[Rfam]
mir-19 microRNA precursor family: an 80-nucleotide RNA sequence from Cyclopterus lumpus. The source organism's lineage runs through Eukaryota, Osteoglossocephalai, Acanthomorphata, Cyclopterinae and Cyclopterus. On this family, see Lagos-Quintana et al., Science 2001: "Identification of novel genes coding for small expressed RNAs". Clan: mir-19 clan.

RNA sequence: UCACACGGUCAGUUUUGCUGGUUUGCAUUCAGCUUUAACUGAUGUUUGCUGUGCAAAUCCAUGCAAAACUGACUGUUGAU
Numbered sequence: 001u002c003a004c005a006c007g008g009u010c011a012g013u014u015u016u017g018c019u020g021g022u023u024u025g026c027a028u029u030c031a032g033c034u035u036u037a038a039c040u041g042a043u044g045u046u047u048g049c050u051g052u053g054c055a056a057a058u059c060c061a062u063g064c065a066a067a068a069c070u071g072a073c074u075g076u077u078g079a080u
Stems, first nucleotide, its partner, number of pairs: 005076014020060002022057007031050003